[Rfam]
RNA: Small nucleolar RNA snoR144
Organism: Raphanus sativus
RNA sequence: AAGGCAACUUUUUGCCGAGUGAAUCGAAUAUCGAUUUCUCUCUUUUUCCCAGUUGCCAAAAUCGUUUUAUGGCUGCGUGAAGAAUUGCUUGAUCGGUUACUUUUUUCAAUUAAUCGAUCUUUUCUUUUGCUGCUACAUCU
Numbered sequence: 001a002a003g004g005c006a007a008c009u010u011u012u013u014g015c016c017g018a019g020u021g022a023a024u025c026g027a028a029u030a031u032c033g034a035u036u037u038c039u040c041u042c043u044u045u046u047u048c049c050c051a052g053u054u055g056c057c058a059a060a061a062u063c064g065u066u067u068u069a070u071g072g073c074u075g076c077g078u079g080a081a082g083a084a085u086u087g088c089u090u091g092a093u094c095g096g097u098u099a100c101u102u103u104u105u106u107c108a109a110u111u112a113a114u115c116g117a118u119c120u121u122u123u124c125u126u127u128u129g130c131u132g133c134u135a136c137a138u139c140u
Base pairs, nucleotide, nucleotide: 003057004056005055006054007053008052009051017042018041019040021038022037023035024034025033026032064138065137067135071131072130073129079127080126081125082124083123091119092118093117095115096114097113098112099111101108